[Rfam]
RNA: L31-Actinobacteria ribosomal protein leader
RNA sequence: CUGGUUCCGGUUCACCGCGCGGCAUGGGCCCCGUGGACCCGGCACU
Numbered sequence: 001c002u003g004g005u006u007c008c009g010g011u012u013c014a015c016c017g018c019g020c021g022g023c024a025u026g027g028g029c030c031c032c033g034u035g036g037a038c039c040c041g042g043c044a045c046u
Base pairs, nucleotide, nucleotide: 003046004045005044007042008041009040010039015036016035017034018033019032021030022029023028